[Rfam]
RNA sequence: GACAUGGCAUGGAAGGAAUGACACCCUUGUGAAAGAAACCAUGGCGACAUGGGAGUAUGAACAGGGGUGGACCAAUGUCAUGUCGUCCGUCUUGAAACACGG
Numbered sequence: 001g002a003c004a005u006g007g008c009a010u011g012g013a014a015g016g017a018a019u020g021a022c023a024c025c026c027u028u029g030u031g032a033a034a035g036a037a038a039c040c041a042u043g044g045c046g047a048c049a050u051g052g053g054a055g056u057a058u059g060a061a062c063a064g065g066g067g068u069g070g071a072c073c074a075a076u077g078u079c080a081u082g083u084c085g086u087c088c089g090u091c092u093u094g095a096a097a098c099a100c101g102g
Stems, first nucleotide, its partner, number of pairs: 001084010015073002023068004028063003034058001039052005087102004

The family of this 102-nucleotide part of an RNA from Methanothermobacter tenebrarum is "Archaeal large subunit ribosomal RNA".
Pairs were carried over by alignment from the consensus structure, which is taken from published work.
The source organism's lineage runs through Archaea, Methanobacteriota, Methanobacteria, Methanobacteriaceae and Methanothermobacter.